[Rfam]
RNA sequence: AAUUUCCUACUGUGUUCGUGUAAUGAGUUAAUCUUGACCCAACAUUUAAAUUAAUGGGAAUCUUACUCUUCUUGUGGAAUGAUACUUAAGCACUGCUUAUGGCAAAGAAGCAAGAAGGCGAUGCCCCCCUGCUAAAGCGGGAUCGAUAAUAACUCACAAAGCGGCAUGGUGGGAAUUUU
Numbered sequence: 001a002a003u004u005u006c007c008u009a010c011u012g013u014g015u016u017c018g019u020g021u022a023a024u025g026a027g028u029u030a031a032u033c034u035u036g037a038c039c040c041a042a043c044a045u046u047u048a049a050a051u052u053a054a055u056g057g058g059a060a061u062c063u064u065a066c067u068c069u070u071c072u073u074g075u076g077g078a079a080u081g082a083u084a085c086u087u088a089a090g091c092a093c094u095g096c097u098u099a100u101g102g103c104a105a106a107g108a109a110g111c112a113a114g115a116a117g118g119c120g121a122u123g124c125c126c127c128c129c130u131g132c133u134a135a136a137g138c139g140g141g142a143u144c145g146a147u148a149a150u151a152a153c154u155c156a157c158a159a160a161g162c163g164g165c166a167u168g169g170u171g172g173g174a175a176u177u178u179u
Stems, first nucleotide, its partner, number of pairs: 002177001004175012017163003032148001034146004039141002056126003060122003064118001069116007
Dot-bracket structure: .(.((((((((((((.(((............(.((((.((...............(((.(((.(....(((((((..................................))))))).).))).))).............)).)))).)............))))))))))))))).)..
RNA: 6S / SsrS RNA
Organism: Clostridium sp. JN-9